[Rfam]
RNA sequence: UGGUAGAUGCACCCUGAUUAAAAUCCUCAGUCCAUGCCUAGUGGAUUGGGGAUUCUUUU
Numbered sequence: 001u002g003g004u005a006g007a008u009g010c011a012c013c014c015u016g017a018u019u020a021a022a023a024u025c026c027u028c029a030g031u032c033c034a035u036g037c038c039u040a041g042u043g044g045a046u047u048g049g050g051g052a053u054u055c056u057u058u059u
Stems, first nucleotide, its partner, number of pairs: 002013003025051011
Shown here is a 59-nucleotide RNA from Phormidesmis priestleyi, a member of the family "Nitrogen stress-induced RNA 1". Pairs were carried over by alignment from the consensus structure.